RNA: mir-505 microRNA precursor family
Organism: Tupaia belangeri
RNA sequence: GGGAGCCAGGAAGUAUUGAUGUUUCUGCCAGUUUAGCGUCAACACUUGCUGGUUUCCU
Numbered sequence: 001g002g003g004a005g006c007c008a009g010g011a012a013g014u015a016u017u018g019a020u021g022u023u024u025c026u027g028c029c030a031g032u033u034u035a036g037c038g039u040c041a042a043c044a045c046u047u048g049c050u051g052g053u054u055u056c057c058u
Stems, first nucleotide, its partner, number of pairs: 001057009011047004016042008